[Rfam]
Nucleotides: 110
Stems, first nucleotide, its partner, number of pairs: 006104005012099001013061004018056004023051002028043002031040003065096002067093003072089005
Number, partner (000 for none) and nucleotide at each position: 001000u002000g003000u004000g005000c006104c007103g008102c009101c010100g011000g012099a013061c014060g015059g016058u017000g018056g019055g020054u021053g022000c023051c024050g025000a026000g027000a028043g029042a030000c031040g032039u033038u034000g035000g036000g037000g038033a039032g040031c041000g042029u043028c044000a045000g046000u047000g048000a049000c050024c051023g052000u053021c054020a055019c056018c057000c058016g059015c060014u061013g062000g063000a064000a065096g066095c067093c068092g069091g070000g071000a072089c073088g074087c075086g076085g077000a078000c079000c080000a081000g082000g083000g084000a085076c086075c087074g088073c089072g090000a091069c092068c093067g094000a095066g096065c097000g098000c099012u100010c101009g102008g103007c104006g105000a106000g107000g108000g109000a110000g
Rfam assigns this 110-nucleotide sequence to the family "Actinomyces-1 RNA". The sequence is in the family's curated seed alignment. Rfam classes the family as a small RNA. The base pairs follow the family's consensus structure, which is taken from published work.